[Rfam]
RNA sequence: AGUGCAUCUACUGGGCUACAGCAGUAGCCAUAAUGGAGAAGAAGGAGCCCAUGUCAGACCUUCCUCAGGUCUGCGAAUGCUUCA
Numbered sequence: 001a002g003u004g005c006a007u008c009u010a011c012u013g014g015g016c017u018a019c020a021g022c023a024g025u026a027g028c029c030a031u032a033a034u035g036g037a038g039a040a041g042a043a044g045g046a047g048c049c050c051a052u053g054u055c056a057g058a059c060c061u062u063c064c065u066c067a068g069g070u071c072u073g074c075g076a077a078u079g080c081u082u083c084a
Base pairs, nucleotide, nucleotide: 012051013050014049015048016047017046021083023081024080025079026078055073056072057071058070059069060068061067
The family of this 84-nucleotide sequence from Grus americana is "Mammalian CPEB3 ribozyme". A search with the family's covariance model found it, with a score of 41 bits. Rfam 15.1 lists 5,706 matches to the family in 197 species. Rfam's curators write: The mammalian CPEB3 ribozyme is a self cleaving RNA located in the second intron of the CPEB3 gene which belongs to a family of genes regulating messenger RNA polyadenylation. The organism belongs to Grus, within Eukaryota. Pairs were carried over by alignment from the consensus structure, which is taken from published work.